[Rfam]
RNA sequence: CACGUUCAUCAUGUUUCUAACAUGACGGAAGUAGACGAAAGUCGAAGGAACGCAUG
Numbered sequence: 001c002a003c004g005u006u007c008a009u010c011a012u013g014u015u016u017c018u019a020a021c022a023u024g025a026c027g028g029a030a031g032u033a034g035a036c037g038a039a040a041g042u043c044g045a046a047g048g049a050a051c052g053c054a055u056g
Stems, first nucleotide, its partner, number of pairs: 003052005009025005028053001034043003
Notes: Rfam assigns this 56-nucleotide RNA sequence to the family "Glutamine riboswitch aptamer (glnA leader)". On this family, see Ames and Breaker, RNA Biol 2011: "Bacterial aptamers that selectively bind glutamine". Pairs were carried over by alignment from the consensus structure, which is taken from published work.